[Rfam]
RNA sequence: UUGACAGCGAAAUGAGAAUUGUUAUUAUUACCGCAACUGGUCGCGAGAUCAGCCGGUAAGCUGGGAGUCCAGGCAGUCGGUCUUUCAGGUUAUCUCCUCAUCAGGCUAAUCACGGUUUUGACCCGGCAUCUUUGCCGGGUCUUUUUUUU
Numbered sequence: 001u002u003g004a005c006a007g008c009g010a011a012a013u014g015a016g017a018a019u020u021g022u023u024a025u026u027a028u029u030a031c032c033g034c035a036a037c038u039g040g041u042c043g044c045g046a047g048a049u050c051a052g053c054c055g056g057u058a059a060g061c062u063g064g065g066a067g068u069c070c071a072g073g074c075a076g077u078c079g080g081u082c083u084u085u086c087a088g089g090u091u092a093u094c095u096c097c098u099c100a101u102c103a104g105g106c107u108a109a110u111c112a113c114g115g116u117u118u119u120g121a122c123c124c125g126g127c128a129u130c131u132u133u134g135c136c137g138g139g140u141c142u143u144u145u146u147u148u149u
Base pairs, nucleotide, nucleotide: 034055037052038051039050040049041048042047061088062087063086064085065084066083067082069079096105097104098103120141121140122139123138124137125136126135127134

This 149-nucleotide RNA from Stutzerimonas nosocomialis belongs to the Rfam family "PrrF RNA". From the family's description: PrrF RNA is a small RNA involved in iron homeostasis and is found exclusively in Pseudomonas species. A search with the family's covariance model found it, with a score of 147 bits. For this family Rfam cites "Identification of tandem duplicate regulatory small RNAs in Pseudomonas aeruginosa involved in iron homeostasis" (Wilderman et al., Proc Natl Acad Sci U S A, 2004). Its family is annotated with sRNA-mediated gene silencing in the Gene Ontology.